[Rfam]
RNA sequence: GAAGACUUACUCAGCACCUAGCUGUAGCCCCUGGCGGGUACUUUUUCUCUCUACCAGAGAAACAUUCCAGGGUACAGUGGCUGCCUGGAUCUGUCAGGAGCAGUGCAGCUGUCUGGGGAGGGAAGG
Numbered sequence: 001g002a003a004g005a006c007u008u009a010c011u012c013a014g015c016a017c018c019u020a021g022c023u024g025u026a027g028c029c030c031c032u033g034g035c036g037g038g039u040a041c042u043u044u045u046u047c048u049c050u051c052u053a054c055c056a057g058a059g060a061a062a063c064a065u066u067c068c069a070g071g072g073u074a075c076a077g078u079g080g081c082u083g084c085c086u087g088g089a090u091c092u093g094u095c096a097g098g099a100g101c102a103g104u105g106c107a108g109c110u111g112u113c114u115g116g117g118g119a120g121g122g123a124a125g126g
Base pairs, nucleotide, nucleotide: 001054003052004051005050014041016039017038018037019036022033024031066117067116068115069114070113071112075108077106078105079104082102083101084100086098
Dot-bracket structure: (.(((........(.((((..(.(......).)..)))).)........))).)...........((((((...(.(((..(((.(...........).))).))).)...)))))).........
Rfam assigns this 126-nucleotide RNA from Spermophilus dauricus to the family "Small nucleolar RNA SNORA77".
Lineage of the source: Eukaryota > Euteleostomi > Tetrapoda > Boreoeutheria > Spermophilus.
By type it is an H/ACA-box small nucleolar RNA.
Its family is annotated with RNA processing and nucleolus in the Gene Ontology.
The family's consensus secondary structure was predicted with RNAalifold.
ACA63 (SNORA77) is a member of the H/ACA class of snoRNAs that guide the sites of modification of uridines to pseudouridines. This snoRNA was identified by computational screening and its expression in mouse experimentally verified by Northern blot and primer extension analysis.
The match comes from Rfam's covariance-model search (77 bits).
A reference for the family is Schattner et al. (2006), "A computational screen for mammalian pseudouridylation guide H/ACA RNAs", RNA.